[Rfam]
RNA sequence: CCCCACGACACGGGGUGCGCCCGCCGGGCGCUGAGAUCACACCCGUCGAACCUGACUCAGCUCGUACUGACGGAGGGAAUGUCGACCAUGACGCUG
Numbered sequence: 001c002c003c004c005a006c007g008a009c010a011c012g013g014g015g016u017g018c019g020c021c022c023g024c025c026g027g028g029c030g031c032u033g034a035g036a037u038c039a040c041a042c043c044c045g046u047c048g049a050a051c052c053u054g055a056c057u058c059a060g061c062u063c064g065u066a067c068u069g070a071c072g073g074a075g076g077g078a079a080u081g082u083c084g085a086c087c088a089u090g091a092c093g094c095u096g
Base pairs, nucleotide, nucleotide: 006084007083008082009081010080011045012044013043014042016039017031018030019029020028021027051076052075053074057070058069059068060067

Rfam assigns this 96-nucleotide RNA sequence from Isoptericola variabilis to the family "TPP riboswitch aptamer (THI element)". It scores 66 bits against the family's covariance model. Rfam links the family to the GO term thiamine pyrophosphate binding. The organism belongs to Isoptericola variabilis, within Bacteria.